[Rfam]
RNA sequence: AGCGACAAGCGGCAAACCCAUCGCGAGGUGGGGACGCAAAGCCACGGGACCCUCGAGGUCAGCCGGGCCACCGAA
Dot-bracket structure: ...........((...((((((....))))))...))...(((.((((((.......)))..)))))).......
Numbered sequence: 001a002g003c004g005a006c007a008a009g010c011g012g013c014a015a016a017c018c019c020a021u022c023g024c025g026a027g028g029u030g031g032g033g034a035c036g037c038a039a040a041g042c043c044a045c046g047g048g049a050c051c052c053u054c055g056a057g058g059u060c061a062g063c064c065g066g067g068c069c070a071c072c073g074a075a
Stems, first nucleotide, its partner, number of pairs: 012037002017032006041068003045065003048060003
Notes
The record is a 75-nucleotide sequence from Actinotalea bogoriensis, which matches "c-di-GMP-I riboswitch aptamer" in Rfam. The base pairs follow the family's consensus structure, which is taken from published work. It scores 56 bits against the family's covariance model. Taxonomically the source falls in Actinotalea bogoriensis (Bacteria, Actinomycetota, Micrococcales, Actinotalea).